[Rfam]
The record is a 77-nucleotide RNA sequence from Megalops atlanticus, which matches "mir-17 microRNA precursor family" in Rfam. A reference for the family is Liu et al. (2025), "Structural Features Within Precursor microRNA-20a Regulate Dicer-TRBP Processing", J Mol Biol. Rfam's curators write: This family represents the microRNA (miRNA) precursor mir-17, family, which includes mir-20, mir-91, and mir-103. miRNAs are transcribed as ~70nt precursors (modelled here) and subsequently processed by the Dicer enzyme to give a ~22nt product. The base pairs follow the family's consensus structure, which was predicted with RNAalifold.
RNA sequence: UGGGCAGUUCCAAAGUGCUCACAGUGCAGGUAGUAACAGCUGAUCUACUGCACCGCGCGCACUUCCAGUAUUGCCAG
Numbered sequence: 001u002g003g004g005c006a007g008u009u010c011c012a013a014a015g016u017g018c019u020c021a022c023a024g025u026g027c028a029g030g031u032a033g034u035a036a037c038a039g040c041u042g043a044u045c046u047a048c049u050g051c052a053c054c055g056c057g058c059g060c061a062c063u064u065c066c067a068g069u070a071u072u073g074c075c076a077g
Stems, first nucleotide, its partner, number of pairs: 004074004010068001013064006020057001022055001024053004029049005